About this RNA:
The family of this 93-nucleotide sequence from Fontibacillus panacisegetis is "c-di-GMP-I riboswitch aptamer". Rfam describes the family as follows. GEMM was predicted in a large-scale screen for bacterial structured RNA regulatory elements. The source organism's lineage runs through Bacteria, Bacilli, Caryophanales, Paenibacillaceae and Fontibacillus.

RNA sequence: GUAGAACAAAGGCAACUUUCGUCCGAAAGGCGGAAGACGCAAAGCUACCGGUCUAAACCGCUCUUCAAGCGGCAUGACAGCGGGGUUGCUUCG
Numbered sequence: 001g002u003a004g005a006a007c008a009a010a011g012g013c014a015a016c017u018u019u020c021g022u023c024c025g026a027a028a029g030g031c032g033g034a035a036g037a038c039g040c041a042a043a044g045c046u047a048c049c050g051g052u053c054u055a056a057a058c059c060g061c062u063c064u065u066c067a068a069g070c071g072g073c074a075u076g077a078c079a080g081c082g083g084g085g086u087u088g089c090u091u092c093g
Stems, first nucleotide, its partner, number of pairs: 012040002017035004023030002043087004048083003051078003058072004